[Rfam]
Rfam assigns this 109-nucleotide sequence from Sorghum bicolor to the family "MIR5565 microRNA precursor family". Its family is annotated with RISC complex and miRNA-mediated post-transcriptional gene silencing in the Gene Ontology. Pairs were carried over by alignment from the consensus structure, which was predicted with RNAalifold.
RNA sequence: GUUAUCGGAUUCACCUCAAUCCACAUGUGUUGGAGUGGAUUGGGGUGAAAUUUAGUUCAAGUUCCACUCAAAUCCACCCCAACACAUGUAUAUUGAUGCGAAUCCGACU
Numbered sequence: 001g002u003u004a005u006c007g008g009a010u011u012c013a014c015c016u017c018a019a020u021c022c023a024c025a026u027g028u029g030u031u032g033g034a035g036u037g038g039a040u041u042g043g044g045g046u047g048a049a050a051u052u053u054a055g056u057u058c059a060a061g062u063u064c065c066a067c068u069c070a071a072a073u074c075c076a077c078c079c080c081a082a083c084a085c086a087u088g089u090a091u092a093u094u095g096a097u098g099c100g101a102a103u104c105c106g107a108c109u
Stems, first nucleotide, its partner, number of pairs: 005107008014098001016096005023089010035077007043069001045067003